The family of this 134-nucleotide RNA from Bos taurus is "Small nucleolar RNA SNORA43". Lineage of the source: Eukaryota > Eumetazoa > Euteleostomi > Artiodactyla > Bos. Clan: SNORA17 clan. ACA43 is a member of the H/ACA class of snoRNA that guide the sites of modification of uridines to pseudouridines. The family's consensus secondary structure was predicted with RNAfold.
RNA sequence: GAUGCCGGACUUACUGGCACCAUGGGUGCAGCUGCCCUGCUGAACUCAGGAUGUUGGGGCAGAGACGAAGCAGUUAUUUCUACACUCAGUGCUCAGAAUAGUGGGCACUAAGGAUGGUUUAUAGCCAGACUUCA
Numbered sequence: 001g002a003u004g005c006c007g008g009a010c011u012u013a014c015u016g017g018c019a020c021c022a023u024g025g026g027u028g029c030a031g032c033u034g035c036c037c038u039g040c041u042g043a044a045c046u047c048a049g050g051a052u053g054u055u056g057g058g059g060c061a062g063a064g065a066c067g068a069a070g071c072a073g074u075u076a077u078u079u080c081u082a083c084a085c086u087c088a089g090u091g092c093u094c095a096g097a098a099u100a101g102u103g104g105g106c107a108c109u110a111a112g113g114a115u116g117g118u119u120u121a122u123a124g125c126c127a128g129a130c131u132u133c134a
Stems, first nucleotide, its partner, number of pairs: 003061004007055002023048003073125002080117003085112002090107006